This 141-nucleotide RNA from Propithecus coquereli belongs to the Rfam family "U4 spliceosomal RNA". Rfam classes the family as a spliceosomal small nuclear RNA. U4 small nuclear RNA (U4 snRNA) is a component of the major U2-dependent spliceosome. Pairs were carried over by alignment from the consensus structure, which is taken from published work.
RNA sequence: AGCUUUGAGCUGUGGCAGUAUCAUAGCCAAUGAGGUUUAUCCGAGGUGCGAUUAUUGCUAAUUGAAAACUUUUCCCAAUAUCCCACAAUGACAACUUGCAAUAUAGUCGGCAUUGGCAAUUUUUGGUGGUUCCUACGGGGA
Numbered sequence: 001a002g003c004u005u006u007g008a009g010c011u012g013u014g015g016c017a018g019u020a021u022c023a024u025a026g027c028c029a030a031u032g033a034g035g036u037u038u039a040u041c042c043g044a045g046g047u048g049c050g051a052u053u054a055u056u057g058c059u060a061a062u063u064g065a066a067a068a069c070u071u072u073u074c075c076c077a078a079u080a081u082c083c084c085a086c087a088a089u090g091a092c093a094a095c096u097u098g099c100a101a102u103a104u105a106g107u108c109g110g111c112a113u114u115g116g117c118a119a120u121u122u123u124u125g126g127u128g129g130u131u132c133c134u135a136c137g138g139g140g141a
Base pairs, nucleotide, nucleotide: 020052021051022050024048026047027046028045034042035041086116088113089112090111092109094107095106096105130141131140132139133138